[Rfam]
Plastid-psbA-1 3UTR RNA: a 126-nucleotide RNA. From the family's description: Plastid psbA-1 is a non-coding RNA (ncRNA) present in plastids. It was identified in inverted repeat sequences in the 3 prime untranslate region (3UTR) of photosystem II quinone-binding protein (psbA). Pairs were carried over by alignment from the consensus structure, which was predicted with LocARNA. The family's RNA type in Rfam is cis-regulatory element.
RNA sequence: UGUCGAAGCUCCAUCUACAAAUGGAUAAGACUUAGGUCUUAGUAUAUAUGAGUUAUUGAAAAUAAAUAAGAAAGGAGCAAUGUCAACCCUCUUGAUAAAACAAGAAGUUGAUUAUUGUUCCUUUCU
Numbered sequence: 001u002g003u004c005g006a007a008g009c010u011c012c013a014u015c016u017a018c019a020a021a022u023g024g025a026u027a028a029g030a031c032u033u034a035g036g037u038c039u040u041a042g043u044a045u046a047u048a049u050g051a052g053u054u055a056u057u058g059a060a061a062a063u064a065a066a067u068a069a070g071a072a073a074g075g076a077g078c079a080a081u082g083u084c085a086a087c088c089c090u091c092u093u094g095a096u097a098a099a100a101c102a103a104g105a106a107g108u109u110g111a112u113u114a115u116u117g118u119u120c121c122u123u124u125c126u
Stems, first nucleotide, its partner, number of pairs: 010025005071124012086109001090105004